[Rfam]
RNA sequence: AAUAUGGAAUGUUAAACUAAGUACGCGACGUCGUGUCGCAACGUCUAACUGACCCACAUCCUGUGAG
Numbered sequence: 001a002a003u004a005u006g007g008a009a010u011g012u013u014a015a016a017c018u019a020a021g022u023a024c025g026c027g028a029c030g031u032c033g034u035g036u037c038g039c040a041a042c043g044u045c046u047a048a049c050u051g052a053c054c055c056a057c058a059u060c061c062u063g064u065g066a067g
Base pairs, nucleotide, nucleotide: 011049012048013047014046016044017043025039026038027037028036029035053067055065056064057063
Dot-bracket structure: ..........((((.((.......(((((.....)))))...)).))))...(.(((.....))).)
Bacillaceae-1 RNA: a 67-nucleotide RNA from Amphibacillus marinus. Pairs were carried over by alignment from the consensus structure, which is taken from published work.